[Rfam]
About this RNA:
A member of the RNA family "ZMP/ZTP riboswitch aptamer (pfl RNA motif)" from Ideonella livida, 130 nucleotides long. Taxonomically the source falls in Ideonella (Bacteria, Betaproteobacteria, Burkholderiales, Sphaerotilaceae).
RNA sequence: GUUCCUACGCGCGACUGGCGAAAGUCCGUGGCCCGUCCCUCCGGGGCGACCAUGUGAUGGGUGGAUCACCACCGUGGAGCGCGGCGCUGCGCAGCGCAGCGAAGAAUUGCCGCUCGCCUGGGCACCCUGC
Numbered sequence: 001g002u003u004c005c006u007a008c009g010c011g012c013g014a015c016u017g018g019c020g021a022a023a024g025u026c027c028g029u030g031g032c033c034c035g036u037c038c039c040u041c042c043g044g045g046g047c048g049a050c051c052a053u054g055u056g057a058u059g060g061g062u063g064g065a066u067c068a069c070c071a072c073c074g075u076g077g078a079g080c081g082c083g084g085c086g087c088u089g090c091g092c093a094g095c096g097c098a099g100c101g102a103a104g105a106a107u108u109g110c111c112g113c114u115c116g117c118c119u120g121g122g123c124a125c126c127c128u129g130c
Stems, first nucleotide, its partner, number of pairs: 005086001008083005015076001017118005061072004108124004